[Rfam]
RNA sequence: GUAAAUAAUGGAAAUUAUACCUGUAUAUGCUUAGAAAUAAGGUCUAAGUGUUUCUACCGGACUACCGUAAAUUGUCUGACUAUGGGUGUUUAUAGAUAUUCG
Numbered sequence: 001g002u003a004a005a006u007a008a009u010g011g012a013a014a015u016u017a018u019a020c021c022u023g024u025a026u027a028u029g030c031u032u033a034g035a036a037a038u039a040a041g042g043u044c045u046a047a048g049u050g051u052u053u054c055u056a057c058c059g060g061a062c063u064a065c066c067g068u069a070a071a072u073u074g075u076c077u078g079a080c081u082a083u084g085g086g087u088g089u090u091u092a093u094a095g096a097u098a099u100u101c102g
Base pairs, nucleotide, nucleotide: 018088019087020086021085022084023083024082025081029049030048031047032046033045034044035043058078059077060076061075062074064072

Purine riboswitch aptamer: a 102-nucleotide RNA sequence from Clostridium puniceum. The base pairs follow the family's consensus structure, which is taken from published work.